[Rfam]
Shown here is a 56-nucleotide RNA from Streptomyces monomycini, a member of the family "L17-Actino-Proteobacteria ribosomal protein leader".
The sequence is in the family's curated seed alignment.
The literature on the family includes a 2020 paper in BMC Microbiol by Eckert and Weinberg, "Discovery of 20 novel ribosomal leader candidates in bacteria and archaea".
Taxonomically the source falls in Streptomyces (Bacteria, Actinomycetota, Actinomycetes, Kitasatosporales).
Pairs were carried over by alignment from the consensus structure, which is taken from published work.
RNA sequence: CUACGUGGCGGCCGCCACGUGGGAACUGACACCGGUACCUGAUACGGCCGGUGCAG
Numbered sequence: 001c002u003a004c005g006u007g008g009c010g011g012c013c014g015c016c017a018c019g020u021g022g023g024a025a026c027u028g029a030c031a032c033c034g035g036u037a038c039c040u041g042a043u044a045c046g047g048c049c050g051g052u053g054c055a056g
Stems, first nucleotide, its partner, number of pairs: 001022009026056003030053007